Overview: The family of this 88-nucleotide sequence from Nicotiana tabacum is "Small nucleolar RNA R11/Z151". The family has 5 seed sequences and 802 matches in Rfam 15.1.
RNA sequence: AGGCUUAUGAUGAUAACAGAAAUUAUCUUAGCGGAUUUCAGUGAAGAUUUAAUUAUCAAUGAUCUGAUUGUUACACACACUGAGGCCC
Numbered sequence: 001a002g003g004c005u006u007a008u009g010a011u012g013a014u015a016a017c018a019g020a021a022a023u024u025a026u027c028u029u030a031g032c033g034g035a036u037u038u039c040a041g042u043g044a045a046g047a048u049u050u051a052a053u054u055a056u057c058a059a060u061g062a063u064c065u066g067a068u069u070g071u072u073a074c075a076c077a078c079a080c081u082g083a084g085g086c087c088c
Stems, first nucleotide, its partner, number of pairs: 002087004